[Rfam]
RNA sequence: CUCCAUCCUAGAAAGACACAGUUUAUAUCCAACGUUUGAUUAUCCAUCUUAUUUGAAAAACUUUUAUAAUUAAUAUUUUUAUUGUUAUUAGAUGAUAAAAUAUGAAUAUUGCUUUAUGUGUGACUAUUUUUUAUUUUCCUUAUAAACUUUUUUAAGAUAGUCAAAUGUUAGAUAUAGGAACACACGACUGCAUUUAAA
Dot-bracket structure: ...........................((.(((.((((((((....(((((.....................................................................................................))))))))))))).))).))..........................
Numbered sequence: 001c002u003c004c005a006u007c008c009u010a011g012a013a014a015g016a017c018a019c020a021g022u023u024u025a026u027a028u029c030c031a032a033c034g035u036u037u038g039a040u041u042a043u044c045c046a047u048c049u050u051a052u053u054u055g056a057a058a059a060a061c062u063u064u065u066a067u068a069a070u071u072a073a074u075a076u077u078u079u080u081a082u083u084g085u086u087a088u089u090a091g092a093u094g095a096u097a098a099a100a101u102a103u104g105a106a107u108a109u110u111g112c113u114u115u116a117u118g119u120g121u122g123a124c125u126a127u128u129u130u131u132u133a134u135u136u137u138c139c140u141u142a143u144a145a146a147c148u149u150u151u152u153u154a155a156g157a158u159a160g161u162c163a164a165a166u167g168u169u170a171g172a173u174a175u176a177g178g179a180a181c182a183c184a185c186g187a188c189u190g191c192a193u194u195u196a197a198a
Stems, first nucleotide, its partner, number of pairs: 028172002031169003035165008047157005